The family of this 205-nucleotide RNA from Oryza sativa is "MIR812 microRNA precursor family".
The family has 22 seed sequences and 57,451 matches in Rfam 15.1.
Gene Ontology terms of the family: RISC complex and miRNA-mediated post-transcriptional gene silencing.
Taxonomically the source falls in Oryza sativa (Eukaryota, Magnoliopsida, commelinids, Oryzoideae).
It scores 105 bits against the family's covariance model.
[Rfam]
RNA sequence: AAUAAAUGCAGCCCUGGGUAUCCAUUUCUAAUGUUUGACUGUCCGUCUUAUUUGAAAAAUUUAUAAAAAAAAAUAUAAAAUUAGUCACGCAUAAAAUAAUGUUCAUGUUUUAUCAUCUAAUAAUAAAAAAAUAUUAAUCAUAAAAAUUUUUAAAUAGGAUGAACGGUCAUACGUUGAACAUGAACAAUGCAAAACUGCACUAGAC
Number, nucleotide and partner (000 for none) at each position: 001a000002a000003u000004a000005a000006a000007u000008g000009c000010a000011g000012c000013c000014c000015u000016g000017g000018g000019u000020a000021u000022c000023c000024a000025u000026u000027u178028c000029u176030a175031a174032u173033g000034u171035u000036u169037g168038a167039c166040u165041g164042u163043c000044c161045g160046u159047c158048u157049u156050a155051u154052u000053u000054g000055a000056a000057a000058a000059a000060u000061u000062u000063a000064u000065a000066a000067a000068a000069a000070a000071a000072a000073a000074u000075a000076u000077a000078a000079a000080a000081u000082u000083a000084g000085u000086c000087a000088c000089g000090c000091a000092u000093a000094a000095a000096a000097u000098a000099a000100u000101g000102u000103u000104c000105a000106u000107g000108u000109u000110u000111u000112a000113u000114c000115a000116u000117c000118u000119a000120a000121u000122a000123a000124u000125a000126a000127a000128a000129a000130a000131a000132u000133a000134u000135u000136a000137a000138u000139c000140a000141u000142a000143a000144a000145a000146a000147u000148u000149u000150u000151u000152a000153a000154a051155u050156a049157g048158g047159a046160u045161g044162a000163a042164c041165g040166g039167u038168c037169a036170u000171a034172c000173g032174u031175u030176g029177a000178a027179c000180a000181u000182g000183a000184a000185c000186a000187a000188u000189g000190c000191a000192a000193a000194a000195c000196u000197g000198c000199a000200c000201u000202a000203g000204a000205c000